Shown here is a 69-nucleotide RNA sequence from Corymbia citriodora, a member of the family "Plastid-clpP 5UTR RNA". The family has 343 seed sequences and 2,105 matches in Rfam 15.1. The family's consensus secondary structure was predicted with LocARNA. On this family, see Richter et al., Plant Commun 2023: "Retrograde signaling in plants: A critical review focusing on the GUN pathway and beyond". About the family: Plastid clpP is a non-coding RNA (ncRNA) recognised in plastids. It was found in the prime untranslated region (5UTR) of a protease complex subunit (clpP) in plastids, suggesting a posible cis-regulatory function.
RNA sequence: AAUUCGGUUUGUAGGAACAAAGAGAAGCAUAUCUAUUAUGUAUCUGAUAAGUACUAAUACACGAUGGGA
Numbered sequence: 001a002a003u004u005c006g007g008u009u010u011g012u013a014g015g016a017a018c019a020a021a022g023a024g025a026a027g028c029a030u031a032u033c034u035a036u037u038a039u040g041u042a043u044c045u046g047a048u049a050a051g052u053a054c055u056a057a058u059a060c061a062c063g064a065u066g067g068g069a
Stems, first nucleotide, its partner, number of pairs: 003022002007018004043068003051060003
Dot-bracket structure: ..((..((((....))))..))....................(((.....(((....))).....))).